[Rfam]
RNA sequence: GAGCAGUGACACUCAGUCGUUAUGUCACCCUAAAACUGGACUUAGAGUCACAGGGACGGAAAUUCUGGGCGGUAGCAGAGACUUUAUUCACUAUCCUUUACAGGACGCCAUUAGCCUUGCUGACUAAUAU
Numbered sequence: 001g002a003g004c005a006g007u008g009a010c011a012c013u014c015a016g017u018c019g020u021u022a023u024g025u026c027a028c029c030c031u032a033a034a035a036c037u038g039g040a041c042u043u044a045g046a047g048u049c050a051c052a053g054g055g056a057c058g059g060a061a062a063u064u065c066u067g068g069g070c071g072g073u074a075g076c077a078g079a080g081a082c083u084u085u086a087u088u089c090a091c092u093a094u095c096c097u098u099u100a101c102a103g104g105a106c107g108c109c110a111u112u113a114g115c116c117u118u119g120c121u122g123a124c125u126a127a128u129a130u
Stems, first nucleotide, its partner, number of pairs: 006028005036053003039049004064079004084127003088123002095104002
RNA: Polynucleobacter-1 RNA